[Rfam]
RNA sequence: CGUUGAAUUGAAUAUAAACCGUAGACAGUAGGUGCUAACCUUAAGCUUAAAAUUUCCUACCGAGGUAAUUAAUGAUAAAUUUGAUUAUAAAACCUCUCUAUGUCUACGUAAGAGAGGUUUUUCUAUGGACGU
Numbered sequence: 001c002g003u004u005g006a007a008u009u010g011a012a013u014a015u016a017a018a019c020c021g022u023a024g025a026c027a028g029u030a031g032g033u034g035c036u037a038a039c040c041u042u043a044a045g046c047u048u049a050a051a052a053u054u055u056c057c058u059a060c061c062g063a064g065g066u067a068a069u070u071a072a073u074g075a076u077a078a079a080u081u082u083g084a085u086u087a088u089a090a091a092a093c094c095u096c097u098c099u100a101u102g103u104c105u106a107c108g109u110a111a112g113a114g115a116g117g118u119u120u121u122u123c124u125a126u127g128g129a130c131g132u
Stems, first nucleotide, its partner, number of pairs: 028060005034046003093117007
Dot-bracket structure: ...........................(((((.(((.......))).........)))))................................(((((((...........)))))))...............
RNA: Ribosomal protein L10 leader